[Rfam]
RNA sequence: AUCAGCCUUGGUGACUGACGGUAUAAGUUGAAUUAACAACAUGGAGCCAAGGUGUCGCACAUCGUCCGUCUGGGUACAUUUC
Numbered sequence: 001a002u003c004a005g006c007c008u009u010g011g012u013g014a015c016u017g018a019c020g021g022u023a024u025a026a027g028u029u030g031a032a033u034u035a036a037c038a039a040c041a042u043g044g045a046g047c048c049a050a051g052g053u054g055u056c057g058c059a060c061a062u063c064g065u066c067c068g069u070c071u072g073g074g075u076a077c078a079u080u081u082c
Base pairs, nucleotide, nucleotide: 005053006052007051008050009049010048011047012046015043017070018069019068020067021066027040028039029038030037061075062074063073

ZMP/ZTP riboswitch aptamer (pfl RNA motif): an 82-nucleotide RNA sequence from Boudabousia marimammalium. Gene Ontology terms of the family: one-carbon metabolic process and regulation of purine nucleotide biosynthetic process. The family has 185 seed sequences and 3,295 matches in Rfam 15.1. Taxonomically the source falls in Boudabousia (Bacteria, Bacillati, Actinomycetota, Actinomycetes). A search with the family's covariance model found it, with a score of 45 bits.